[Rfam]
RNA sequence: ACCUCCAGCAGCAGUGCAGAAGUAAGGGUGGCAUGGUAUAGUAUUGCCACCCUUACUUCUGCACUGCUGCGGGCGGGGU
Numbered sequence: 001a002c003c004u005c006c007a008g009c010a011g012c013a014g015u016g017c018a019g020a021a022g023u024a025a026g027g028g029u030g031g032c033a034u035g036g037u038a039u040a041g042u043a044u045u046g047c048c049a050c051c052c053u054u055a056c057u058u059c060u061g062c063a064c065u066g067c068u069g070c071g072g073g074c075g076g077g078g079u
Stems, first nucleotide, its partner, number of pairs: 001079003005073002009071001010068008019058001021057008
This 79-nucleotide RNA from Chrysemys picta belongs to the Rfam family "mir-16 microRNA precursor family".
Lineage of the source: Eukaryota > Teleostomi > Sarcopterygii > Emydidae > Chrysemys picta.
Its family is annotated with miRNA-mediated post-transcriptional gene silencing and RISC complex in the Gene Ontology.